[Rfam]
RNA sequence: ACGUAUGGGCGCUGGCAUGUCUUCGAAAUUGAUUGACUUAUGGACAUGUGAGGUGGCUGCGAGCUAGCAGCGCCAGGGGACUUGUCGCACCUGAGCGCGCUGGCGAAUUCCCCGCAGUCACCCGGCCCCCGAGCCCUCGGUUUUGUCCAAACUGGAACACAUGGCUCGGGGGCCGCUCCAU
Numbered sequence: 001a002c003g004u005a006u007g008g009g010c011g012c013u014g015g016c017a018u019g020u021c022u023u024c025g026a027a028a029u030u031g032a033u034u035g036a037c038u039u040a041u042g043g044a045c046a047u048g049u050g051a052g053g054u055g056g057c058u059g060c061g062a063g064c065u066a067g068c069a070g071c072g073c074c075a076g077g078g079g080a081c082u083u084g085u086c087g088c089a090c091c092u093g094a095g096c097g098c099g100c101u102g103g104c105g106a107a108u109u110c111c112c113c114g115c116a117g118u119c120a121c122c123c124g125g126c127c128c129c130c131g132a133g134c135c136c137u138c139g140g141u142u143u144u145g146u147c148c149a150a151a152c153u154g155g156a157a158c159a160c161a162u163g164g165c166u167c168g169g170g171g172g173c174c175g176c177u178c179c180a181u
Base pairs, nucleotide, nucleotide: 010061011060012059014058015057016056063104064103065102066101067100068099070098071097072096073095075092076091077090123175124174125173126172127171128170129169130168131167132166133165134164135163137155138154139153140152141151142150
RNA: Actinobacteria sRNA Ms_IGR-5
Organism: Mycolicibacterium rhodesiae